[Rfam]
RNA sequence: GUUGGGAGAGCUGCAUUAUAGCGGUUCGUUGGGGUUUCAAUCCCCACUUGGCAC
Numbered sequence: 001g002u003u004g005g006g007a008g009a010g011c012u013g014c015a016u017u018a019u020a021g022c023g024g025u026u027c028g029u030u031g032g033g034g035u036u037u038c039a040a041u042c043c044c045c046a047c048u049u050g051g052c053a054c
Stems, first nucleotide, its partner, number of pairs: 001052006008027007030046005